tRNA: a 75-nucleotide RNA from Streptomyces sp. Ag109_G2-6.

RNA sequence: GGAGCCGUAGCGCAGAGGUCGACGCGCGCGGUCUCCAACACCGCGAGGACGCCGGUUCGAAUCCGGCCGGCUCCG
Numbered sequence: 001g002g003a004g005c006c007g008u009a010g011c012g013c014a015g016a017g018g019u020c021g022a023c024g025c026g027c028g029c030g031g032u033c034u035c036c037a038a039c040a041c042c043g044c045g046a047g048g049a050c051g052c053c054g055g056u057u058c059g060a061a062u063c064c065g066g067c068c069g070g071c072u073c074c075g
Base pairs, nucleotide, nucleotide: 001074002073003072004071005070006069007068010025011024012023027045029043030042031041032040051067052066053065054064055063
It is annotated as a transfer RNA. NCBI's taxonomy places the organism under Bacteria, Bacillati, Actinomycetes, Kitasatosporales, Streptomyces.